Notes
A member of the RNA family "SAM riboswitch aptamer (S box leader)" from Clostridium baratii, 122 nucleotides long. From the family's description: The SAM riboswitch is found upstream of a number of genes which code for proteins involved in methionine or cysteine biosynthesis in Gram-positive bacteria. The SAM riboswitch acts at the level of transcription termination control. The predicted structure consists of a complex stem-loop region followed by a single stem loop terminator region. An alternative and mutually exclusive form involves bases in the 3' segment of helix 1 with those in the 5' region of helix 5 to form a structure termed the anti-terminator form. This entry represents the conserved core of the complex structure involving helices 1-4. It scores 85 bits against the family's covariance model. Gene Ontology term of the family: regulation of gene expression.
RNA sequence: AUCUUAUUAAGAGUGGUGGAGGGACUGGCCCUAUGAAACCCGGCAACCUAUAUUAAGAACUUAUAUUUAGUAUUUAAUAUGUGGUGCUAAAUCCUGCAGUUUGUUAAACUGAUAGAUAAGAG
Numbered sequence: 001a002u003c004u005u006a007u008u009a010a011g012a013g014u015g016g017u018g019g020a021g022g023g024a025c026u027g028g029c030c031c032u033a034u035g036a037a038a039c040c041c042g043g044c045a046a047c048c049u050a051u052a053u054u055a056a057g058a059a060c061u062u063a064u065a066u067u068u069a070g071u072a073u074u075u076a077a078u079a080u081g082u083g084g085u086g087c088u089a090a091a092u093c094c095u096g097c098a099g100u101u102u103g104u105u106a107a108a109c110u111g112a113u114a115g116a117u118a119a120g121a122g
Base pairs, nucleotide, nucleotide: 002121003120004119005118006117007116008115013041015040016039017038021031022030023029025096027094028093042088043087044086045085047084048083049081050080051079052078053077054076055075056074057073092114097111098110099109100108101107102106